[Rfam]
RNA sequence: UGCGGUCCUCGGUAGUGGCCUUUGCGGGCGUCCUCACCGGCCGCGCGAAGGGCCUCGAUCGAAGACCGGG
Dot-bracket structure: (.(((((.(((((...(((((((((((((..........))).))).)))))))...))))).))))).)
A member of the RNA family "Actino-pnp RNA" from Sinomonas sp. R1AF57, 70 nucleotides long. The source organism's lineage runs through Bacteria, Actinomycetota, Actinomycetes, Micrococcales and Sinomonas.